[Rfam]
RNA sequence: CUGCCCUGCGGAGUGCCAGGUCCGCCGCAUCUCCUGGGUCCGUAGGGUUGGCCGGCGCGCAAAUGGCUUAGGAGUGGCCUCCUCGAAACGGCCAUCUGCCGCCGGCCACCUU
Numbered sequence: 001c002u003g004c005c006c007u008g009c010g011g012a013g014u015g016c017c018a019g020g021u022c023c024g025c026c027g028c029a030u031c032u033c034c035u036g037g038g039u040c041c042g043u044a045g046g047g048u049u050g051g052c053c054g055g056c057g058c059g060c061a062a063a064u065g066g067c068u069u070a071g072g073a074g075u076g077g078c079c080u081c082c083u084c085g086a087a088a089c090g091g092c093c094a095u096c097u098g099c100c101g102c103c104g105g106c107c108a109c110c111u112u
Stems, first nucleotide, its partner, number of pairs: 003048008016037005050107008059099002

The record is a 112-nucleotide RNA sequence from Beijerinckia indica, which matches "EcpR1" in Rfam.
On this family, see Wilms et al., RNA Biol 2012: "Deep sequencing uncovers numerous small RNAs on all four replicons of the plant pathogen Agrobacterium tumefaciens".
Perviously named SmelC291, SmrC10, or Sra33. According to its overproduction phenotype it was renamed Elongated Cell Phenotype RNA1. Induced by stress,EcpR1 negatively regulates cell cycle master regulatory genes dnaA and gcrA at post-transcriptional level by base pairing between its strongly conserved GC-rich loop and the target mRNAs. It's regulation is hfq-independent but requires RNase E to regulate dnaA.
Lineage of the source: Bacteria > Alphaproteobacteria > Beijerinckiaceae > Beijerinckia > Beijerinckia indica subsp. indica.
Pairs were carried over by alignment from the consensus structure, which was predicted with WAR.
The family's RNA type in Rfam is small RNA.